[Rfam]
RNA sequence: GAUCCUGGCCAGCUUUGCAGGGUUAGCAGUCAGCCUAUGUUUGUUAGGAGCAGCUGUGCAAACCCAUGCAAAACUGACCAUGGCC
Dot-bracket structure: ..((.(((.(((.((((((((.((.(((...(((..................))).)))))..)).)))))).))).))).))..
Numbered sequence: 001g002a003u004c005c006u007g008g009c010c011a012g013c014u015u016u017g018c019a020g021g022g023u024u025a026g027c028a029g030u031c032a033g034c035c036u037a038u039g040u041u042u043g044u045u046a047g048g049a050g051c052a053g054c055u056g057u058g059c060a061a062a063c064c065c066a067u068g069c070a071a072a073a074c075u076g077a078c079c080a081u082g083g084c085c
Stems, first nucleotide, its partner, number of pairs: 003083002006080003010076003014072006020065002023061002026059003032055003

mir-19 microRNA precursor family: an 85-nucleotide sequence from Cottoperca gobio.
Lineage of the source: Eukaryota > Gnathostomata > Clupeocephala > Notothenioidei > Cottoperca.
Rfam 15.1 lists 2,337 matches to the family in 651 species.
Rfam links the family to the GO terms RISC complex and miRNA-mediated post-transcriptional gene silencing.